[Rfam]
RNA: sroD RNA
RNA sequence: UUACGUGACGAAGCGCGCGGCAAAGUAGACAAUAAGGUCUAAGCUUCGAGUGAGUCGCCCAACGCCGGUUAGCCCGGCGUUUUUUA
Number, nucleotide and partner (000 for none) at each position: 001u000002u000003a000004c000005g000006u000007g000008a000009c000010g000011a000012a000013g000014c000015g059016c057017g056018c000019g039020g038021c037022a000023a000024a000025g000026u000027a000028g000029a000030c000031a000032a000033u000034a000035a000036g000037g021038u020039c019040u000041a000042a000043g000044c000045u000046u000047c000048g000049a000050g000051u000052g000053a000054g000055u000056c017057g016058c000059c015060c000061a081062a080063c079064g078065c077066c076067g075068g074069u000070u000071a000072g000073c000074c068075c067076g066077g065078c064079g063080u062081u061082u000083u000084u000085u000086a000